[Rfam]
RNA sequence: AGACGAUGAUUGAGACAUUUGGUCAUCAAGUCCUGAAGGCGGACCCAAUAAUCAUAGUAGUUUUCAUCUCUCUCUUACCUAAUAGAAGUGAUCUCUUUACUAGUGU
Number, nucleotide and partner (000 for none) at each position: 001a106002g000003a104004c103005g000006a101007u000008g000009a000010u000011u000012g000013a000014g000015a000016c000017a000018u000019u000020u000021g000022g000023u000024c000025a000026u000027c000028a000029a000030g000031u000032c000033c000034u000035g000036a000037a000038g000039g000040c000041g000042g000043a000044c000045c000046c000047a000048a000049u000050a000051a000052u000053c000054a000055u000056a000057g074058u000059a000060g071061u000062u000063u000064u000065c000066a000067u000068c000069u000070c000071u060072c000073u000074c057075u000076u000077a000078c000079c000080u000081a000082a000083u000084a000085g000086a000087a000088g000089u000090g000091a000092u000093c000094u000095c000096u000097u000098u000099a000100c000101u006102a000103g004104u003105g000106u001
Shown here is a 106-nucleotide sequence from Senna tora, a member of the family "Plant small nucleolar RNA R71".
Gene Ontology terms of the family: RNA processing and nucleolus.
Rfam classes the family as a C/D-box small nucleolar RNA.
Pairs were carried over by alignment from the consensus structure, which was predicted with PFOLD.